[Rfam]
Nucleotides: 065
Stems, first nucleotide, its partner, number of pairs: 002061006016048005
Number, partner (000 for none) and nucleotide at each position: 001000a002061g003060c004059g005058c006057a007056g008000c009000c010000u011000a012000g013000g014000a015000a016048a017047c018046c019045a020044g021000u022000g023000c024000a025000u026000g027000c028000a029000a030000g031000c032000c033000c034000u035000u036000g037000u038000g039000c040000u041000g042000c043000c044020c045019u046018g047017g048016u049000g050000c051000c052000g053000a054000a055000a056007c057006u058005g059004c060003g061002c062000a063000a064000g065000a
Shown here is a 65-nucleotide RNA sequence from Leishmania donovani, a member of the family "Trypanosomatid snoRNA TB9Cs1H1".
NCBI's taxonomy places the organism under Eukaryota, Trypanosomatida, Trypanosomatidae, Leishmania, Leishmania donovani.
Rfam links the family to the GO terms RNA processing and nucleolus.
The family's consensus secondary structure was predicted with WAR.
The family has 4 seed sequences and 68 matches in Rfam 15.1.
The sequence is in the family's curated seed alignment.
Rfam classes the family as an H/ACA-box small nucleolar RNA.